This 328-nucleotide RNA from Bacillus gobiensis belongs to the Rfam family "Group I catalytic intron". Its family is annotated with Group I intron splicing in the Gene Ontology. On this family, see Cech, Annu Rev Biochem 1990: "Self-splicing of group I introns". The family's consensus secondary structure is taken from published work.

[Rfam]
RNA sequence: GCUUCAACUUCUUAGAUAAUUGAUUGCAGGGCGUCUAGUCCGGCAAUGGAUUAGAUCAUCACUGGGUGAAUUGCUGGAACUUCCUUAGAGCUUUUCUGACCACAGCAUAGCUGGAAACGGCAAGUGUGAGGGUUUGAAAACAGAAGAGAUUGGAUAAUCAGCAGCCAAGCCCCUGUUCCGAAAGGAUGGGGAAGGUUCAACGACUAGAAUGCACUGCCUAAAGUUUAAAGCUAUGGCAAUGAGAUUCGUAGGAUGAGAAAUCAUUCGAAGUGCCCAGCCCCAUGAAAAUGGGUGAAGAUAUAGUCUAUUCUAUCGCCGAAAGGCAUAG
Numbered sequence: 001g002c003u004u005c006a007a008c009u010u011c012u013u014a015g016a017u018a019a020u021u022g023a024u025u026g027c028a029g030g031g032c033g034u035c036u037a038g039u040c041c042g043g044c045a046a047u048g049g050a051u052u053a054g055a056u057c058a059u060c061a062c063u064g065g066g067u068g069a070a071u072u073g074c075u076g077g078a079a080c081u082u083c084c085u086u087a088g089a090g091c092u093u094u095u096c097u098g099a100c101c102a103c104a105g106c107a108u109a110g111c112u113g114g115a116a117a118c119g120g121c122a123a124g125u126g127u128g129a130g131g132g133u134u135u136g137a138a139a140a141c142a143g144a145a146g147a148g149a150u151u152g153g154a155u156a157a158u159c160a161g162c163a164g165c166c167a168a169g170c171c172c173c174u175g176u177u178c179c180g181a182a183a184g185g186a187u188g189g190g191g192a193a194g195g196u197u198c199a200a201c202g203a204c205u206a207g208a209a210u211g212c213a214c215u216g217c218c219u220a221a222a223g224u225u226u227a228a229a230g231c232u233a234u235g236g237c238a239a240u241g242a243g244a245u246u247c248g249u250a251g252g253a254u255g256a257g258a259a260a261u262c263a264u265u266c267g268a269a270g271u272g273c274c275c276a277g278c279c280c281c282a283u284g285a286a287a288a289u290g291g292g293u294g295a296a297g298a299u300a301u302a303g304u305c306u307a308u309u310c311u312a313u314c315g316c317c318g319a320a321a322g323g324c325a326u327a328g
Stems, first nucleotide, its partner, number of pairs: 001034002004031002039050003062277004067272002072163006082154003164196002170190003177184001200306001202305005279292005312326002315324003

From the family's description: Group I catalytic introns are large self-splicing ribozymes. They catalyse their own excision from mRNA, tRNA and rRNA precursors in a wide range of organisms. The core secondary structure consists of 9 paired regions (P1-P9).